[Rfam]
RNA sequence: AAAACCGGAAGAGGCGCGUCGGCCAGGUAACGUGUGCGAGGAACCCGUCCUACGACCACACGCGAGGGGGAACGACGCCGAGAUGGCGCGCUGUCUGGUAAGGCGCGUCAUCGGCUGCAGGGGCUGAAUCCCCUGGGCUGUCACCCGAAACGACGGCAGUCGAACGUUUCGCAAGGUGGAGCGCUUCUGGGUGU
Numbered sequence: 001a002a003a004a005c006c007g008g009a010a011g012a013g014g015c016g017c018g019u020c021g022g023c024c025a026g027g028u029a030a031c032g033u034g035u036g037c038g039a040g041g042a043a044c045c046c047g048u049c050c051u052a053c054g055a056c057c058a059c060a061c062g063c064g065a066g067g068g069g070g071a072a073c074g075a076c077g078c079c080g081a082g083a084u085g086g087c088g089c090g091c092u093g094u095c096u097g098g099u100a101a102g103g104c105g106c107g108u109c110a111u112c113g114g115c116u117g118c119a120g121g122g123g124c125u126g127a128a129u130c131c132c133c134u135g136g137g138c139u140g141u142c143a144c145c146c147g148a149a150a151c152g153a154c155g156g157c158a159g160u161c162g163a164a165c166g167u168u169u170c171g172c173a174a175g176g177u178g179g180a181g182c183g184c185u186u187c188u189g190g191g192u193g194u
Stems, first nucleotide, its partner, number of pairs: 006189006016078006024070001031062006082112011113139004118135006141179005
Rfam assigns this 194-nucleotide sequence from Cronobacter sakazakii to the family "Lysine riboswitch aptamer".
The base pairs follow the family's consensus structure, which is taken from published work.
A reference for the family is Mandal et al. (2003), "Riboswitches Control Fundamental Biochemical Pathways in Bacillus subtilis and Other Bacteria", Cell.
Taxonomically the source falls in Cronobacter sakazakii (Bacteria, Pseudomonadota, Gammaproteobacteria, Cronobacter).